[Rfam]
Description:
The record is an 82-nucleotide RNA from Esox lucius, which matches "Small nucleolar RNA SNORD74" in Rfam. A search with the family's covariance model found it, with a score of 62 bits. Clan: SNORD74 clan. The base pairs follow the family's consensus structure, which was predicted with PFOLD.
RNA sequence: CCCAUGUUCAUAUGAUGAAAUAAGUGUUGGUAGGGACAUCUGAAUUAUACUGAGGAAAUGCCAACCAUUCUGACUGCAUGGA
Numbered sequence: 001c002c003c004a005u006g007u008u009c010a011u012a013u014g015a016u017g018a019a020a021u022a023a024g025u026g027u028u029g030g031u032a033g034g035g036a037c038a039u040c041u042g043a044a045u046u047a048u049a050c051u052g053a054g055g056a057a058a059u060g061c062c063a064a065c066c067a068u069u070c071u072g073a074c075u076g077c078a079u080g081g082a
Base pairs, nucleotide, nucleotide: 002081003080004079005078
Dot-bracket structure: .((((........................................................................)))).
Gene Ontology terms of the family: RNA processing and nucleolus.